[Rfam]
RNA sequence: GAAUGACCUUGUUAGGUGAGGCUCCCAUAUGGAGACACGCUACUGCCCAGAAAUGUCCAAAGACGCCAAUGGGUCAGCAGGAAUCUUCGGAUGAAGGGGAUUUUUAAUGUAGCUGAGACUGAAACAGACUCUAUGCCAUAUGAAGCUGAAGCUCAACGACAGAGGUGUAUG
Numbered sequence: 001g002a003a004u005g006a007c008c009u010u011g012u013u014a015g016g017u018g019a020g021g022c023u024c025c026c027a028u029a030u031g032g033a034g035a036c037a038c039g040c041u042a043c044u045g046c047c048c049a050g051a052a053a054u055g056u057c058c059a060a061a062g063a064c065g066c067c068a069a070u071g072g073g074u075c076a077g078c079a080g081g082a083a084u085c086u087u088c089g090g091a092u093g094a095a096g097g098g099g100a101u102u103u104u105u106a107a108u109g110u111a112g113c114u115g116a117g118a119c120u121g122a123a124a125c126a127g128a129c130u131c132u133a134u135g136c137c138a139u140a141u142g143a144a145g146c147u148g149a150a151g152c153u154c155a156a157c158g159a160c161a162g163a164g165g166u167g168u169a170u171g
Stems, first nucleotide, its partner, number of pairs: 006166005011157002013095001015153003020147003026142007039113005045074005054065004080104004086098003115131003
The family of this 171-nucleotide sequence from Alkalibacterium pelagium is "M-box riboswitch aptamer (ykoK leader)". Pairs were carried over by alignment from the consensus structure. A search with the family's covariance model found it, with a score of 134 bits.